[Rfam]
About this RNA: This 79-nucleotide RNA from Lacinutrix sp. Bg11-31 belongs to the Rfam family "Flavo-1 RNA". The family's RNA type in Rfam is small RNA.
RNA sequence: CUUUAUCUGCGUGAGUGAUAGUAACGGCAUCCUUUUGCUUUUUUUUAAGCAAAAGAUAUAGUGAAUAGCACGACCUUUA
Numbered sequence: 001c002u003u004u005a006u007c008u009g010c011g012u013g014a015g016u017g018a019u020a021g022u023a024a025c026g027g028c029a030u031c032c033u034u035u036u037g038c039u040u041u042u043u044u045u046u047a048a049g050c051a052a053a054a055g056a057u058a059u060a061g062u063g064a065a066u067a068g069c070a071c072g073a074c075c076u077u078u079a
Base pairs, nucleotide, nucleotide: 015071016070017069019067020066024062025061029057030056031055035052036051037050038049039048